[Rfam]
RNA sequence: AAAGGAGGAGUCCAAAGGGAUAGCAUGAUCCAAAUUCAGUUUCUUGAAUUAAUAAACAGAAAUUGAAAUGGGAUCAAUGCGAUCCCUUUGGACGCCUCCUU
Numbered sequence: 001a002a003a004g005g006a007g008g009a010g011u012c013c014a015a016a017g018g019g020a021u022a023g024c025a026u027g028a029u030c031c032a033a034a035u036u037c038a039g040u041u042u043c044u045u046g047a048a049u050u051a052a053u054a055a056a057c058a059g060a061a062a063u064u065g066a067a068a069u070g071g072g073a074u075c076a077a078u079g080c081g082a083u084c085c086c087u088u089u090g091g092a093c094g095c096c097u098c099c100u101u
Base pairs, nucleotide, nucleotide: 002101003100004099005098006097008095010093011092012091013090014089015088016087017086018085019084020083021082023080024079025078026076027075028074029073030072031071035068

Rfam assigns this 101-nucleotide sequence from Nicotiana attenuata to the family "mir-393 microRNA precursor family".
Pairs were carried over by alignment from the consensus structure.
For this family Rfam cites "Role of microRNAs and other sRNAs of plants in their changing environments" (Kruszka et al., J Plant Physiol, 2012).
It scores 73 bits against the family's covariance model.